[Rfam]
RNA sequence: GUAUUGCCAGGAGUUCCCUACAAGCACUUCACGUGGCCUGAGCUUGAGGGCUCUUGUGAAGUGUUUGGGGGAACUCUCGGUGCAU
Numbered sequence: 001g002u003a004u005u006g007c008c009a010g011g012a013g014u015u016c017c018c019u020a021c022a023a024g025c026a027c028u029u030c031a032c033g034u035g036g037c038c039u040g041a042g043c044u045u046g047a048g049g050g051c052u053c054u055u056g057u058g059a060a061g062u063g064u065u066u067g068g069g070g071g072a073a074c075u076c077u078c079g080g081u082g083c084a085u
Stems, first nucleotide, its partner, number of pairs: 005082004011076009022066012035053002
Notes
A member of the RNA family "mir-395 microRNA precursor family" from Panicum hallii, 85 nucleotides long. It scores 61 bits against the family's covariance model. The family's consensus secondary structure was predicted with PFOLD. mir-395 was identified in both Arabidopsis thaliana and Oryza sativa computationally and was later experimentally verified. mir-395 is thought to target mRNAs coding for ATP sulphurylases. The mature sequence is excised from the 3' arm of the hairpin.